[Rfam]
RNA: Glutamine-II riboswitch aptamer
RNA sequence: GUCCGUUCAUCCCUAAUGAGGACGCAUGAAAUCCAAGCAUGGAACGGGGCUUGGG
Numbered sequence: 001g002u003c004c005g006u007u008c009a010u011c012c013c014u015a016a017u018g019a020g021g022a023c024g025c026a027u028g029a030a031a032u033c034c035a036a037g038c039a040u041g042g043a044a045c046g047g048g049g050c051u052u053g054g055g
Base pairs, nucleotide, nucleotide: 004046005045006044007043008042010022011021012020032055033054034053035052036051037050038049